[Rfam]
The record is a 117-nucleotide RNA sequence from Paenibacillus lycopersici, which matches "epsC RNA" in Rfam. By type it is a cis-regulatory element. NCBI's taxonomy places the organism under Bacteria, Bacillota, Bacilli, Caryophanales, Paenibacillus. The family's consensus secondary structure is taken from published work. The match comes from Rfam's covariance-model search (102 bits).

RNA sequence: AGGUAAUGUCUACUGUACCUAUAUCACUGUAGGCACUCGGUUAUACUGUGGGUUCGUAACUUUGAACCUUAGACGCGGGUCGUCGAUGGUGUGAUGUGAGGUGAGGUUUGAUGCCUU
Numbered sequence: 001a002g003g004u005a006a007u008g009u010c011u012a013c014u015g016u017a018c019c020u021a022u023a024u025c026a027c028u029g030u031a032g033g034c035a036c037u038c039g040g041u042u043a044u045a046c047u048g049u050g051g052g053u054u055c056g057u058a059a060c061u062u063u064g065a066a067c068c069u070u071a072g073a074c075g076c077g078g079g080u081c082g083u084c085g086a087u088g089g090u091g092u093g094a095u096g097u098g099a100g101g102u103g104a105g106g107u108u109u110g111a112u113g114c115c116u117u
Base pairs, nucleotide, nucleotide: 001020002019003018004017007035008034009033010032011031012030013029036100037099038098039097040095041094042093043092044091045090046089047088050069051068052067053066054065055064056063072084073083074082075081103117104116105115106114107113